[Rfam]
RNA sequence: GGAUGUGAGGGCAAUCUGGCUGCGAGAUCUGUCACCCCAUUGAUCACCAGAGUUGAUCGGGCUGAUCUGGCUGGCUAGGCGGGUGUCCCCGUCCUCCCUCACCGCUCGCUCCCAUGUGUGUCUCUCCCAAAGCUGCGCACUCAGUUGAAGAGGACAACCUUCCCCAAUAGAGACGUACUGUUCAUCGGUCAAGGGUAUACAGUAGCUGUGCUCCCCUGCUAGAGUCUCCAAACAAGCUCUUAGUAAUACCAAUUUUGGCAUUUGUUUGGGAAGAACGCAGGUACCUGCGUAGCAGAUGCUCU
Numbered sequence: 001g002g003a004u005g006u007g008a009g010g011g012c013a014a015u016c017u018g019g020c021u022g023c024g025a026g027a028u029c030u031g032u033c034a035c036c037c038c039a040u041u042g043a044u045c046a047c048c049a050g051a052g053u054u055g056a057u058c059g060g061g062c063u064g065a066u067c068u069g070g071c072u073g074g075c076u077a078g079g080c081g082g083g084u085g086u087c088c089c090c091g092u093c094c095u096c097c098c099u100c101a102c103c104g105c106u107c108g109c110u111c112c113c114a115u116g117u118g119u120g121u122c123u124c125u126c127c128c129a130a131a132g133c134u135g136c137g138c139a140c141u142c143a144g145u146u147g148a149a150g151a152g153g154a155c156a157a158c159c160u161u162c163c164c165c166a167a168u169a170g171a172g173a174c175g176u177a178c179u180g181u182u183c184a185u186c187g188g189u190c191a192a193g194g195g196u197a198u199a200c201a202g203u204a205g206c207u208g209u210g211c212u213c214c215c216c217u218g219c220u221a222g223a224g225u226c227u228c229c230a231a232a233c234a235a236g237c238u239c240u241u242a243g244u245a246a247u248a249c250c251a252a253u254u255u256u257g258g259c260a261u262u263u264g265u266u267u268g269g270g271a272a273g274a275a276c277g278c279a280g281g282u283a284c285c286u287g288c289g290u291a292g293c294a295g296a297u298g299c300u301c302u
Stems, first nucleotide, its partner, number of pairs: 001113002003106001005102007014092001018090002024087002027084007035074002037070003042067004047061002122175001123173004127144001130141001132140001145167003152163003205293003211287001215281005226273002229270001233268004
Dot-bracket structure: (((.(((((((..(...((....((.(((((((.(((((..((((.((...........))..)))))))..))...))))))).)).)).)...)))))))...).....))........((((((..(.(.......))..)(((....(((......))).)))..)))).).............................(((...(...(((((......((.(...((((............................)))).).))...))))).....)...))).........
RNA: 7SK RNA
Organism: Burhinus bistriatus